[Rfam]
RNA sequence: AAGCGGGGACGACCCCGCCGCUCCAUCCACAUCCGGGGACGGCCCCA
Numbered sequence: 001a002a003g004c005g006g007g008g009a010c011g012a013c014c015c016c017g018c019c020g021c022u023c024c025a026u027c028c029a030c031a032u033c034c035g036g037g038g039a040c041g042g043c044c045c046c047a
Base pairs, nucleotide, nucleotide: 003018004017005016006015007014008013035046036045037044038043
Dot-bracket structure: ..((((((....))))))................((((....)))).